Rfam assigns this 130-nucleotide sequence from Affinibrenneria salicis to the family "RtT RNA". The literature on the family includes a 1991 paper in Nucleic Acids Res by Bosl and Kersten, "A novel RNA product of the tyrT operon of Escherichia coli". About the family: This family represents a bacterial cis-regulatory element known as RtT RNA. The exact function of RtT is unknown although it is thought that it may be involved in changing the cellular response in relation to amino acid starvation. It scores 56 bits against the family's covariance model. It is annotated as a cis-regulatory element.

RNA sequence: CAUAGUCCCCAUAAGGGAGGGUGAGAGCCCUCGACCGGGUUCGACAAAACGGCAGCGCCGUUUUGCAUGGCCGACAGGCCACCCGCAGGGCGAGGCGCAACGCGCCGGGUGUAUCCCUCCCUCACCGCAA
Numbered sequence: 001c002a003u004a005g006u007c008c009c010c011a012u013a014a015g016g017g018a019g020g021g022u023g024a025g026a027g028c029c030c031u032c033g034a035c036c037g038g039g040u041u042c043g044a045c046a047a048a049a050c051g052g053c054a055g056c057g058c059c060g061u062u063u064u065g066c067a068u069g070g071c072c073g074a075c076a077g078g079c080c081a082c083c084c085g086c087a088g089g090g091c092g093a094g095g096c097g098c099a100a101c102g103c104g105c106c107g108g109g110u111g112u113a114u115c116c117c118u119c120c121c122u123c124a125c126c127g128c129a130a
Stems, first nucleotide, its partner, number of pairs: 015121007022113001032092002035090002040087001042085002047062002069080004